[Rfam]
This 304-nucleotide RNA from Aquilegia coerulea belongs to the Rfam family "Plant signal recognition particle RNA".

RNA sequence: GCCGAGCUCAGUAACUUGAGCUUGUAACUCGAGUGAGGGCAGUGAAGUGACUGGACUUGAGCUAUGCCUAAUCUGGUUGGGUUUCUAAUGCACGUACUGGCUCGCCCGCUCCAAGUUGGGAGUUGGGUUAUGUGGAGCAGGCGAAGGCCCGUGCCACGUGGCUACUAGAGUGGAGGGUACCUCGUCAGGCUGGAUUCACAGAGCAGCGAAAACCUCCCUCUCUCGACAGUGGAAGGAUAACGAGAUAGGUGCUCUAUAAGCCAUCUAUGGCCAGAUGGGCCCAGCCCAAAGAACAAUCACUUUU
Numbered sequence: 001g002c003c004g005a006g007c008u009c010a011g012u013a014a015c016u017u018g019a020g021c022u023u024g025u026a027a028c029u030c031g032a033g034u035g036a037g038g039g040c041a042g043u044g045a046a047g048u049g050a051c052u053g054g055a056c057u058u059g060a061g062c063u064a065u066g067c068c069u070a071a072u073c074u075g076g077u078u079g080g081g082u083u084u085c086u087a088a089u090g091c092a093c094g095u096a097c098u099g100g101c102u103c104g105c106c107c108g109c110u111c112c113a114a115g116u117u118g119g120g121a122g123u124u125g126g127g128u129u130a131u132g133u134g135g136a137g138c139a140g141g142c143g144a145a146g147g148c149c150c151g152u153g154c155c156a157c158g159u160g161g162c163u164a165c166u167a168g169a170g171u172g173g174a175g176g177g178u179a180c181c182u183c184g185u186c187a188g189g190c191u192g193g194a195u196u197c198a199c200a201g202a203g204c205a206g207c208g209a210a211a212a213c214c215u216c217c218c219u220c221u222c223u224c225g226a227c228a229g230u231g232g233a234a235g236g237a238u239a240a241c242g243a244g245a246u247a248g249g250u251g252c253u254c255u256a257u258a259a260g261c262c263a264u265c266u267a268u269g270g271c272c273a274g275a276u277g278g279g280c281c282c283a284g285c286c287c288a289a290a291g292a293a294c295a296a297u298c299a300c301u302u303u304u
Base pairs, nucleotide, nucleotide: 001040002039003038004023005022006021007020008019009018010017011016028037029036030035044303045302046301047300048299049298050297052295053294056291057290058288059287062284063283066280067279069278071276072275073274074273075272076271077270078269080262081261082260083259084258086256090252092250093249097248098247099246101244102243103242104241106236107235110233111232112231113230115227116226117225118224119223120222121221122220126163127162128161129160130159131158132157133156134155135154137152138151140149141148142147165170172217173216174215175214176213182209183208184207185206190201191200192199
It is annotated as a non-coding RNA gene. Pairs were carried over by alignment from the consensus structure, which is taken from published work. A search with the family's covariance model found it, with a score of 222 bits.